A member of the RNA family "U7 small nuclear RNA" from Carlito syrichta, 62 nucleotides long. Lineage of the source: Eukaryota > Eumetazoa > Sarcopterygii > Tarsiiformes > Carlito. About the family: Animal histone pre-mRNAs are spliced by a different mechanism than nuclear pre-mRNAs and self-splicing introns. This processing involves the U7 snRNP, which contains only one RNA species: U7. The 5' end of U7 RNA is thought to base-pair to a conserved spacer element downstream of the cleavage site in histone pre-mRNA. This family contains a number of annotated U7 pseudogenes.
[Rfam]
RNA sequence: GAGUGUUACAGCUAUUUUAGAAUUUGUCUAGCCAGGUUUUUCUGUGAAAACCAGAAGCCCAU
Numbered sequence: 001g002a003g004u005g006u007u008a009c010a011g012c013u014a015u016u017u018u019a020g021a022a023u024u025u026g027u028c029u030a031g032c033c034a035g036g037u038u039u040u041u042c043u044g045u046g047a048a049a050a051c052c053a054g055a056a057g058c059c060c061a062u
Stems, first nucleotide, its partner, number of pairs: 035059007044051002
Dot-bracket structure: ..................................(((((((..((....)).)))))))...